[Rfam]
This 84-nucleotide sequence from Salix koriyanagi belongs to the Rfam family "mir-156 microRNA precursor family". Its family is annotated with RISC complex and miRNA-mediated post-transcriptional gene silencing in the Gene Ontology. This family represents the plant microRNA (miRNA) precursor mir-156. A search with the family's covariance model found it, with a score of 78 bits.
RNA sequence: GUGACAGAAGAGAGUGAGCACACAGGGUACUUUCUUGCAUGAAUUCAUGCUUGAAGCCUUGCGUGCCCACUCUCUAUCUGUCAC
Numbered sequence: 001g002u003g004a005c006a007g008a009a010g011a012g013a014g015u016g017a018g019c020a021c022a023c024a025g026g027g028u029a030c031u032u033u034c035u036u037g038c039a040u041g042a043a044u045u046c047a048u049g050c051u052u053g054a055a056g057c058c059u060u061g062c063g064u065g066c067c068c069a070c071u072c073u074c075u076a077u078c079u080g081u082c083a084c
Stems, first nucleotide, its partner, number of pairs: 001084008010074007018066004023061003